[Rfam]
RNA: c-di-AMP riboswitch aptamer (ydaO/yuaA leader)
RNA sequence: ACCGCCUAAUCGCCAACCUGCACAAGGGGCGCGAACCGGGGACCCACUUCCUCCGGAGUGCGACAGGUGAGUCACCACUCGCCGUCGCCCGCCGGAUCGGGGUGAAUCGCGGGAGACCGCGUAGGGCCAUCUCUUCCGGCCCGAAUCCGACAGCUAACCCGGUCGGCGGUCAAGGGAGAAACU
Dot-bracket structure: ..((((...(((...................)))((((((....(.....................................................)(((.....((((......))))..((((...........))))...))).........)))))).))))...............